The record is a 152-nucleotide RNA from Aquibium oceanicum, which matches "speF leader" in Rfam. On this family, see Corbino et al., Genome Biol 2005: "Evidence for a second class of S-adenosylmethionine riboswitches and other regulatory RNA motifs in alpha-proteobacteria". Pairs were carried over by alignment from the consensus structure, which was predicted with RNAalifold. This family is a putative regulatory RNA structure that is found upstream of the speF gene encoding ornithine decarboxylase in Agrobacterium tumefaciens and other alpha-proteobacteria.
[Rfam]
RNA sequence: UUCCGGUUGUCCAAAGACCGGGGUUACUGAAGAGGCACACCAUCAUUGCCGACAGUGCGGACGGGGCUCCCUUCCAAAGCUGAGGCAGACAAAGCGAGCGCCGGCUGAACAGCCGUCACUCAUCGCCGCGCAAAGCGGGUUCCUGGUACCGG
Numbered sequence: 001u002u003c004c005g006g007u008u009g010u011c012c013a014a015a016g017a018c019c020g021g022g023g024u025u026a027c028u029g030a031a032g033a034g035g036c037a038c039a040c041c042a043u044c045a046u047u048g049c050c051g052a053c054a055g056u057g058c059g060g061a062c063g064g065g066g067c068u069c070c071c072u073u074c075c076a077a078a079g080c081u082g083a084g085g086c087a088g089a090c091a092a093a094g095c096g097a098g099c100g101c102c103g104g105c106u107g108a109a110c111a112g113c114c115g116u117c118a119c120u121c122a123u124c125g126c127c128g129c130g131c132a133a134a135g136c137g138g139g140u141u142c143c144u145g146g147u148a149c150c151g152g
Stems, first nucleotide, its partner, number of pairs: 001023008034050004057131003085095001102115005